[Rfam]
Nucleotides: 111
Stems, first nucleotide, its partner, number of pairs: 006099001010095001011062004017032005039056005067092004073086004
Number, partner (000 for none) and nucleotide at each position: 001000a002000u003000c004000u005000a006099c007000g008000a009000a010095c011062a012061c013060g014059g015000g016000a017032g018031u019030c020029c021028g022000g023000u024000c025000a026000a027000c028021c029020g030019g031018g032017c033000u034000g035000a036000g037000a038000g039056g040055g041054a042053g043052c044000u045000u046000c047000g048000u049000a050000c051000a052043g053042c054041u055040u056039c057000g058000a059014c060013c061012g062011u063000c064000g065000a066000a067092c068091c069090u070089g071000a072000u073086c074085u075084g076083g077000a078000u079000c080000a081000u082000g083076c084075c085074a086073g087000c088000g089070c090069a091068g092067g093000g094000a095010g096000g097000c098000a099006g100000a101000u102000c103000a104000u105000c106000u107000c108000g109000u110000a111000c